[Rfam]
RNA sequence: UUUAACCUCAUUUGUAAGUCGCUUUGGAUAAAAGCGUCUGCUAAAUGUAAAUGU
Dot-bracket structure: ............((((...((((((.....))))))..))).)...........